[Rfam]
RNA: TPP riboswitch aptamer (THI element)
RNA sequence: CACCUCCGACAGGGGAGCGCACAGCGCUGAGAGUGCGGGUCCGCCCGCAGACCCUCCGUACCUGAUCUGGGUAAUGCCAGCGCAGGGAGUUCGGUCCACCUCCAGC
Numbered sequence: 001c002a003c004c005u006c007c008g009a010c011a012g013g014g015g016a017g018c019g020c021a022c023a024g025c026g027c028u029g030a031g032a033g034u035g036c037g038g039g040u041c042c043g044c045c046c047g048c049a050g051a052c053c054c055u056c057c058g059u060a061c062c063u064g065a066u067c068u069g070g071g072u073a074a075u076g077c078c079a080g081c082g083c084a085g086g087g088a089g090u091u092c093g094g095u096c097c098a099c100c101u102c103c104a105g106c
Base pairs, nucleotide, nucleotide: 006094007093008092009091011055012054013053014052017027018026019025020024034049035048036047037046038045061086062085063084064083067080068079069078070077